The family of this 96-nucleotide RNA sequence from Sphingopyxis sp. MG is "Glycine riboswitch aptamer". Lineage of the source: Bacteria > Pseudomonadati > Pseudomonadota > Alphaproteobacteria > Sphingopyxis. It scores 53 bits against the family's covariance model.
[Rfam]
RNA sequence: ACCGGCCGCGCGGGAGAGCGCGGGGCAGGCGACUGCACCGCCACCGAAGGAGCAACCGCCCCGGAAACUCUCAGGUCAAGGGACCGCGCAGCCGGA
Numbered sequence: 001a002c003c004g005g006c007c008g009c010g011c012g013g014g015a016g017a018g019c020g021c022g023g024g025g026c027a028g029g030c031g032a033c034u035g036c037a038c039c040g041c042c043a044c045c046g047a048a049g050g051a052g053c054a055a056c057c058g059c060c061c062c063g064g065a066a067a068c069u070c071u072c073a074g075g076u077c078a079a080g081g082g083a084c085c086g087c088g089c090a091g092c093c094g095g096a
Stems, first nucleotide, its partner, number of pairs: 006091001008089006020041004043076003046072002050070003056064002